[Rfam]
RNA sequence: AAGGGGGAAGCCGAAAACCCGUGUCAGAGUAGGCA
Numbered sequence: 001a002a003g004g005g006g007g008a009a010g011c012c013g014a015a016a017a018c019c020c021g022u023g024u025c026a027g028a029g030u031a032g033g034c035a
Base pairs, nucleotide, nucleotide: 003020004019005018010034011033012032